The record is a 132-nucleotide RNA, which matches "Small nucleolar RNA SNORA17" in Rfam. Rfam 15.1 lists 5,784 matches to the family in 673 species. Its Rfam clan is "SNORA17 clan". The family's RNA type in Rfam is H/ACA-box small nucleolar RNA. Its family is annotated with nucleolus and RNA processing in the Gene Ontology. The sequence is in the family's curated seed alignment.

[Rfam]
RNA sequence: UUUGCCUCUAGAGGUAUUGCAGGUAUGGCUGCUGUGUCACAUGUGCAUCAAGAGGUGGCAGAGGGGAGAAAGGCUAUGUCUACACUCAGUGUUCUAACAUGUGAACAUCUGAAUGGUCAGUAGUCUAACAUU
Numbered sequence: 001u002u003u004g005c006c007u008c009u010a011g012a013g014g015u016a017u018u019g020c021a022g023g024u025a026u027g028g029c030u031g032c033u034g035u036g037u038c039a040c041a042u043g044u045g046c047a048u049c050a051a052g053a054g055g056u057g058g059c060a061g062a063g064g065g066g067a068g069a070a071a072g073g074c075u076a077u078g079u080c081u082a083c084a085c086u087c088a089g090u091g092u093u094c095u096a097a098c099a100u101g102u103g104a105a106c107a108u109c110u111g112a113a114u115g116g117u118c119a120g121u122a123g124u125c126u127a128a129c130a131u132u
Stems, first nucleotide, its partner, number of pairs: 002061005007055003013049003019046003024041001026039004068129001071126007083115002086112004090107005